[Rfam]
RNA sequence: CCUGUUGUACGACCAACAGUUGCCUACCUGGACAUGCGCGACGGGAGACCGUCGGGUGUGAAGCUCCGGGGACAAAGUACCCUUCCGACGGACGGUCCACCUUGGUGACAAGGAACCGACACUGCGAGCAGCGACGCGGUAUAGGGA
Dot-bracket structure: .((((((......))))))........((((((((((.((((((....)))))).)))))....)))))..............(((...))).(((......((....))....)))...((((((........)))))).......
About this RNA
The family of this 147-nucleotide sequence from Paraburkholderia phytofirmans is "Group II catalytic intron D1-D4-7". Gene Ontology term of the family: Group II intron splicing. For this family Rfam cites "The ins and outs of group II introns" (Bonen and Vogel, Trends Genet, 2001). Rfam's curators write: Group II introns are found in rRNA, tRNA and mRNA of organelles in fungi, plants and protists, and also in mRNA in bacteria.